[Rfam]
RNA sequence: GUAGGGUAUGGUGACAUGUACCCGGUGACGGUGGGUGGUAAGCUGGUUGGAUCGAUGUGUGCCAUCGCAGGGGUCCUAACCAUAUCACUUCCUGUUCCUGUCAUCGUUUCCAAC
Numbered sequence: 001g002u003a004g005g006g007u008a009u010g011g012u013g014a015c016a017u018g019u020a021c022c023c024g025g026u027g028a029c030g031g032u033g034g035g036u037g038g039u040a041a042g043c044u045g046g047u048u049g050g051a052u053c054g055a056u057g058u059g060u061g062c063c064a065u066c067g068c069a070g071g072g073g074u075c076c077u078a079a080c081c082a083u084a085u086c087a088c089u090u091c092c093u094g095u096u097c098c099u100g101u102c103a104u105c106g107u108u109u110c111c112a113a114c
Stems, first nucleotide, its partner, number of pairs: 001114002004111002008107004013102004018097001020095002037077002040074001049063002